[Rfam]
RNA sequence: CGUUCGGCUAGGGAUGUCGACCCCGAAAAACCGAAAUCAUCUGGCGGUCUGCCGAACGAUCAUUCAGCCAGA
Numbered sequence: 001c002g003u004u005c006g007g008c009u010a011g012g013g014a015u016g017u018c019g020a021c022c023c024c025g026a027a028a029a030a031c032c033g034a035a036a037u038c039a040u041c042u043g044g045c046g047g048u049c050u051g052c053c054g055a056a057c058g059a060u061c062a063u064u065c066a067g068c069c070a071g072a
Base pairs, nucleotide, nucleotide: 001058002057003056004055005054006053007052008051011024012023013022030048031047032046033045040072041071042070